The record is a 187-nucleotide sequence from Cohnella abietis, which matches "Ribosomal protein L10 leader" in Rfam.
This family is a putative r-protein leader autoregulatory structure found in B. subtilis and other low-GC Gram-positive bacteria. It is located in the 5' untranslated regions of mRNAs encoding ribosomal proteins L10 and L12 (rplJ-rplL). A Rho-independent transcription terminator structure that is probably involved in regulation is included at the 3' end.
NCBI's taxonomy places the organism under Bacteria, Bacillota, Caryophanales, Paenibacillaceae, Cohnella.
RNA sequence: UGAAAUUGAAUAUGGAUACCGUAGACCGUAGGUGCGACACAUAACCUUUAACCGUUAUGCAAGCUUAAUUCCCUACCGAGGUGUGUGGAUAGAGUUUUCCUCUUUUGCAAAGUGCGCUGCAUUUUGAUAAUAGAGUAAGAUCACGUCAUGCCUUCGCGAAUCUGCGGAGGCAUUUCUUUAUGCCUCC
Numbered sequence: 001u002g003a004a005a006u007u008g009a010a011u012a013u014g015g016a017u018a019c020c021g022u023a024g025a026c027c028g029u030a031g032g033u034g035c036g037a038c039a040c041a042u043a044a045c046c047u048u049u050a051a052c053c054g055u056u057a058u059g060c061a062a063g064c065u066u067a068a069u070u071c072c073c074u075a076c077c078g079a080g081g082u083g084u085g086u087g088g089a090u091a092g093a094g095u096u097u098u099c100c101u102c103u104u105u106u107g108c109a110a111a112g113u114g115c116g117c118u119g120c121a122u123u124u125u126g127a128u129a130a131u132a133g134a135g136u137a138a139g140a141u142c143a144c145g146u147c148a149u150g151c152c153u154u155c156g157c158g159a160a161u162c163u164g165c166g167g168a169g170g171c172a173u174u175u176c177u178u179u180a181u182g183c184c185u186c187c
Stems, first nucleotide, its partner, number of pairs: 028076005034064002149172010

The base pairs follow the family's consensus structure, which was predicted with CMfinder. A search with the family's covariance model found it, with a score of 54 bits.